[Rfam]
A member of the RNA family "Small nucleolar RNA SNORD11B" from Sphaeramia orbicularis, 85 nucleotides long.
The family has 37 seed sequences and 733 matches in Rfam 15.1.
On this family, see Yang et al., Nucleic Acids Res 2006: "snoSeeker: an advanced computational package for screening of guide and orphan snoRNA genes in the human genome".
Its family is annotated with nucleolus and RNA processing in the Gene Ontology.
Its Rfam clan is "SNORD11 clan".
The source organism's lineage runs through Eukaryota, Bilateria, Craniata, Eurypterygia and Sphaeramia.
The family's consensus secondary structure was predicted with WAR.
Nucleotides: 085
Stems, first nucleotide, its partner, number of pairs: 002084003006080002
Number, partner (000 for none) and nucleotide at each position: 001000u002084g003083a004082c005000a006080g007079u008000g009000g010000u011000g012000a013000u014000g015000a016000u017000g018000a019000u020000g021000a022000c023000a024000u025000u026000u027000g028000u029000c030000a031000u032000g033000a034000u035000c036000c037000u038000g039000a040000a041000a042000c043000a044000a045000u046000u047000u048000a049000u050000g051000u052000g053000g054000g055000u056000u057000u058000u059000u060000c061000a062000g063000u064000c065000a066000c067000u068000a069000c070000c071000u072000c073000a074000u075000c076000u077000g078000a079007a080006c081000a082004g083003u084002c085000a